[Rfam]
Rfam assigns this 509-nucleotide RNA sequence from Streptomyces lydicus to the family "Saccharopolyspora sRNA 350". It is annotated as an antisense RNA. The match comes from Rfam's covariance-model search (67 bits). The source organism's lineage runs through Bacteria, Actinomycetota, Actinomycetes, Streptomycetaceae and Streptomyces. The family's consensus secondary structure was predicted with RNAfold.
RNA sequence: UGAGCGCCCGGACGCGGUACGGCAUCUCCUCGGAGCGGGUCCAGGCGUCGAGGUCGAAGAACUGGCCGUCGCCGAUGACUUCGAGCACGGCGUCCUCGCCGUAGCGGCCGUUGAUCCGCUUCUCGGCGCGGCCCUGGGCGAUCACCCAGAGCCGAUCGUGGGCGUCGCCGUCCUGGGCCAGCAGCUGCCCGGCCUCGAACGUCACUUCCGUGAAGGCUCCGGCCAGUUCGGCCAGCAGGUCGUCGUCGGCCUCCCGGAGGUAGGGCAGUUCCCGAAGGUCGCCCGGGAUGAUGCGCGGUGAGCCGCCGUCCGUGUGGGUGCUGAUGCGGUCGUCACCGAGGACGUAGGUGCGACGCCGGUUGACGCGGAACACACCGGCCUCCACGUCCACCCACGGCAGGGCGCGCAGCAGAUAGCGCGGAGUGAUGCCGCGCAUCUGCGGGCUGGUCUUGGUCGUGGUCGCGAGCUGCCGUGCCGCGUCCGGGCCGAGGCUCAUCCGUUCGUUCAUG
Numbered sequence: 001u002g003a004g005c006g007c008c009c010g011g012a013c014g015c016g017g018u019a020c021g022g023c024a025u026c027u028c029c030u031c032g033g034a035g036c037g038g039g040u041c042c043a044g045g046c047g048u049c050g051a052g053g054u055c056g057a058a059g060a061a062c063u064g065g066c067c068g069u070c071g072c073c074g075a076u077g078a079c080u081u082c083g084a085g086c087a088c089g090g091c092g093u094c095c096u097c098g099c100c101g102u103a104g105c106g107g108c109c110g111u112u113g114a115u116c117c118g119c120u121u122c123u124c125g126g127c128g129c130g131g132c133c134c135u136g137g138g139c140g141a142u143c144a145c146c147c148a149g150a151g152c153c154g155a156u157c158g159u160g161g162g163c164g165u166c167g168c169c170g171u172c173c174u175g176g177g178c179c180a181g182c183a184g185c186u187g188c189c190c191g192g193c194c195u196c197g198a199a200c201g202u203c204a205c206u207u208c209c210g211u212g213a214a215g216g217c218u219c220c221g222g223c224c225a226g227u228u229c230g231g232c233c234a235g236c237a238g239g240u241c242g243u244c245g246u247c248g249g250c251c252u253c254c255c256g257g258a259g260g261u262a263g264g265g266c267a268g269u270u271c272c273c274g275a276a277g278g279u280c281g282c283c284c285g286g287g288a289u290g291a292u293g294c295g296c297g298g299u300g301a302g303c304c305g306c307c308g309u310c311c312g313u314g315u316g317g318g319u320g321c322u323g324a325u326g327c328g329g330u331c332g333u334c335a336c337c338g339a340g341g342a343c344g345u346a347g348g349u350g351c352g353a354c355g356c357c358g359g360u361u362g363a364c365g366c367g368g369a370a371c372a373c374a375c376c377g378g379c380c381u382c383c384a385c386g387u388c389c390a391c392c393c394a395c396g397g398c399a400g401g402g403c404g405c406g407c408a409g410c411a412g413a414u415a416g417c418g419c420g421g422a423g424u425g426a427u428g429c430c431g432c433g434c435a436u437c438u439g440c441g442g443g444c445u446g447g448u449c450u451u452g453g454u455c456g457u458g459g460u461c462g463c464g465a466g467c468u469g470c471c472g473u474g475c476c477g478c479g480u481c482c483g484g485g486c487c488g489a490g491g492c493u494c495a496u497c498c499g500u501u502c503g504u505u506c507a508u509g
Base pairs, nucleotide, nucleotide: 006391010389011388012387013386016383017382019330020329022327023326027324028323033321040318041317042316043315045313046312047311050310051309053307055305056304062235063234064233065232066231067230068229070113071112073110080107082106083105087102088101089100090099091098123226125224127221128220131217132216134215135214137211138208140206142204144202147201153197154196158194161179162178163177239299240298241297242296245292246291247290248289250287254285256283257282259280261277263273264272265271331344332343333342334341353381355379356378357377358376359375365371393433395431396430397429398428399427402424403423405420406419407418409417439478440477441476442475445472446471447470448469450466451465453463454462479508480507482503483502484501486499490497